[Rfam]
RNA: Bacterial RNase P class A
Nucleotides: 412
Stems, first nucleotide, its partner, number of pairs: 001408010011397001012360007020048008053395003057392005062246004072294002075242005080094005095109001096107004110237002115235002117231003132177002134173008185203006204226001205224003209220004250317004259307005287301003291297001324343008
Number, partner (000 for none) and nucleotide at each position: 001408u002407c003406a004405g005404u006403c007402g008401g009400c010399u011397g012360g013359a014358u015357g016356g017355c018354c019000g020048c021047u022046u023045c024044g025043g026042g027041u028000g029000u030000c031000g032000u033000u034000u035000a036000c037000g038000a039000c040000g041027g042026c043025c044024c045023g046022g047021g048020g049000a050000g051000g052000a053395a054394a055393g056000u057392c058391c059390g060389g061388g062246c063245u064244c065243c066000a067000c068000g069000g070000a071000a072294g073293g074000a075242c076241g077240g078239u079238g080094c081093c082092g083091g084090a085000u086000a087000a088000c089000g090084u091083c092082c093081g094080g095109c096107g097106g098105g099104g100000g101000c102000g103000a104099c105098c106097c107096c108000a109095g110237g111236g112000a113000a114000a115235g116234u117231g118230c119229c120000a121000c122000a123000g124000a125000a126000a127000g128000c129000a130000a131000a132177c133176c134173g135172c136171c137170c138169g139168c140167g141166c142000c143000g144000g145000c146000g147000g148000g149000g150000c151000c152000u153000c154000g155000u156000g157000c158000c159000c160000u161000g162000g163000c164000u165000c166141g167140c168139g169138c170137g171136g172135g173134u174000a175000a176133g177132g178000g179000u180000g181000a182000a183000a184000g185203g186202g187201u188200g189199c190198g191000g192000u193000a194000a195000g196000a197000g198190c199189g200188c201187a202186c203185c204226g205224c206223g207222g208000g209220c210219c211218c212217g213000g214000c215000g216000a217212c218211g219210g220209g221000a222207c223206c224205g225000g226204c227000a228000c229119g230118g231117u232000a233000a234116a235115c236111c237110c238079c239078a240077c241076c242075g243065g244064g245063a246062g247000c248000a249000a250317g251316a252315c253314c254000a255000a256000g257000a258000g259307u260306a261305c262304g263303g264000c265000a266000c267000g268000c269000g270000c271000c272000a273000c274000a275000g276000c277000c278000g279000u280000g281000g282000c283000g284000c285000a286000c287301g288300g289299u290000g291297c292000g293073u294072u295000c296000c297291g298000a299289g300288c301287c302000g303263c304262c305261g306260u307259a308000g309000u310000g311000g312000u313000a314253g315252g316251u317250u318000g319000c320000u321000a322000g323000a324343g325342g326341c327340g328339u329338c330337c331336g332000g333000c334000a335000a336331c337330g338329g339328g340327c341326g342325u343324c344000c345000c346000a347000g348000a349000u350000g351000a352000a353000u354018g355017g356016c357015c358014a359013u360012c361000c362000a363000u364000c365000g366000c367000c368000c369000c370000u371000c372000g373000c374000g375000g376000g377000c378000g379000g380000g381000g382000a383000c384000a385000g386000a387000a388061c389060c390059c391058g392057g393055c394054u395053u396000a397011c398000a399010g400009g401008c402007c403006g404005a405004c406003u407002g408001a409000c410000g411000c412000u